This 55-nucleotide RNA belongs to the Rfam family "nhaA-I RNA". Acidobacteria, Alphaproteobacteria, Betaproteobacteria and Gammaproteobacteria, Verrucomicrobia, cand. division NC10.

[Rfam]
RNA sequence: GGGUUCAGGGAUAGACGUUAUCUUUGGAGGAUUUGGAUGGUCGGGCCGCCAUUCG
Dot-bracket structure: ....((((((((.......))))))))......((((.(((......))).))))
The base pairs follow the family's consensus structure, which is taken from published work.